This 86-nucleotide RNA belongs to the Rfam family "c-di-GMP-I riboswitch aptamer". Rfam links the family to the GO term cyclic-di-GMP binding.
[Rfam]
RNA sequence: GGGAAAGAUAGGCAAAUUUACUAAAAAGUAAAGAUGCAAAGCUACAGGUCUAAGGGAAUAAGUACUUAGAUGGCUAGGUUGCAAAA
Dot-bracket structure: ...........((...((((((....))))))...))..((((..(((((....(.(.....).)...)))..)).))))......